[Rfam]
RNA sequence: GAGGGGGAAGACGGGAGAAGAGAAGAGAGCGGUUAUGCGGCUCCUCACUCCUCCCCUCCCGUCUUGUUCUCUC
Numbered sequence: 001g002a003g004g005g006g007g008a009a010g011a012c013g014g015g016a017g018a019a020g021a022g023a024a025g026a027g028a029g030c031g032g033u034u035a036u037g038c039g040g041c042u043c044c045u046c047a048c049u050c051c052u053c054c055c056c057u058c059c060c061g062u063c064u065u066g067u068u069c070u071c072u073c
Base pairs, nucleotide, nucleotide: 004069005068006067008065009064010063011062012061013060014059015058016057017056022053024052025051027049029048031046
This 73-nucleotide RNA sequence from Sciurus carolinensis belongs to the Rfam family "mir-483 microRNA precursor family".
Rfam links the family to the GO terms RISC complex and miRNA-mediated post-transcriptional gene silencing.